RNA sequence: UGGUAGUGAUGGGGACAAGCAUUCAACAAUUGUUUGAAAUGAGCCCAUGCUUGAUACAUAUCCUCCCCAUUUUUCUACUUGAAGCUCAAUAUUUCACUCCUCAACCG
Number, nucleotide and partner (000 for none) at each position: 001u107002g000003g105004u104005a000006g101007u000008g000009a000010u000011g000012g000013g000014g000015a000016c000017a000018a000019g000020c000021a000022u000023u000024c000025a000026a000027c000028a000029a000030u000031u000032g000033u000034u000035u000036g000037a000038a000039a000040u000041g000042a000043g000044c000045c000046c000047a000048u000049g000050c000051u000052u000053g000054a000055u000056a000057c000058a073059u000060a071061u000062c000063c000064u000065c000066c000067c000068c000069a000070u000071u060072u000073u058074u000075c000076u000077a000078c000079u000080u000081g000082a000083a000084g000085c000086u000087c000088a000089a000090u000091a000092u000093u000094u000095c000096a000097c000098u000099c000100c000101u006102c000103a000104a004105c003106c000107g001
Notes
This 107-nucleotide sequence from Solanum tuberosum belongs to the Rfam family "Plant small nucleolar RNA R71". On this family, see Brown et al., Trends Plant Sci 2003: "Plant snoRNAs: functional evolution and new modes of gene expression". The match comes from Rfam's covariance-model search (42 bits). NCBI's taxonomy places the organism under Eukaryota, Viridiplantae, Gunneridae, Solanales, Solanum. The base pairs follow the family's consensus structure, which was predicted with PFOLD.